RNA sequence: UGGGAUGCAUUCUGUACAGUAAUGUUGACUCUUGUAAAACCAUCACUGGGCAAAGUGUGUCUCAAA
Dot-bracket structure: ((((((((((..(((.((((........................)))).)))..))))))))))..
RNA: mir-3 microRNA precursor family